Overview: The record is a 106-nucleotide RNA from Thermobifida halotolerans, which matches "TPP riboswitch aptamer (THI element)" in Rfam. Pairs were carried over by alignment from the consensus structure, which is taken from published work. The match comes from Rfam's covariance-model search (66 bits).
RNA sequence: ACCGAACGACAGGGGAGCGCCUCAGCGCUGAGAGUGCGGCACAGCCGCAGACCCUUACACACCUGAUCUGGGUAAUGCCAGCGAAGGAAGUCGUGGGAACCGCCAC
Numbered sequence: 001a002c003c004g005a006a007c008g009a010c011a012g013g014g015g016a017g018c019g020c021c022u023c024a025g026c027g028c029u030g031a032g033a034g035u036g037c038g039g040c041a042c043a044g045c046c047g048c049a050g051a052c053c054c055u056u057a058c059a060c061a062c063c064u065g066a067u068c069u070g071g072g073u074a075a076u077g078c079c080a081g082c083g084a085a086g087g088a089a090g091u092c093g094u095g096g097g098a099a100c101c102g103c104c105a106c
Stems, first nucleotide, its partner, number of pairs: 006094005011055004017028004035049005062087003068081004